This 141-nucleotide sequence from Cohnella faecalis belongs to the Rfam family "c-di-AMP riboswitch aptamer (ydaO/yuaA leader)".
RNA sequence: AGUUAAUACAAGCUUAGUUUCCGGAUUCAUCCGGAAAGCGGGGGAACCAAUCGUUAGGGGCGCAUCAUUCCGCGAGGAAUGUAGGGAACCAUCUAUCCCGAGCCCGUCAGCUAACCUCGUCGGCUUUGGAUGGGUCGAUAG
Number, nucleotide and partner (000 for none) at each position: 001a000002g000003u000004u000005a000006a000007u000008a000009c000010a000011a125012g124013c123014u122015u000016a000017g000018u037019u036020u035021c034022c033023g032024g031025a030026u000027u000028c000029a000030u025031c024032c023033g022034g021035a020036a019037a018038g120039c119040g118041g117042g116043g115044g000045a000046a000047c000048c057049a000050a000051u000052c000053g000054u000055u000056a000057g048058g105059g104060g103061c000062g000063c000064a000065u000066c081067a080068u079069u078070c000071c000072g000073c000074g000075a000076g000077g000078a069079a068080u067081g066082u000083a000084g099085g098086g097087a096088a000089c000090c000091a000092u000093c000094u000095a000096u087097c086098c085099c084100g000101a000102g000103c060104c059105c058106g000107u000108c000109a000110g000111c000112u000113a000114a000115c043116c042117u041118c040119g039120u038121c000122g014123g013124c012125u011126u000127u000128g000129g000130a000131u000132g000133g000134g000135u000136c000137g000138a000139u000140a000141g000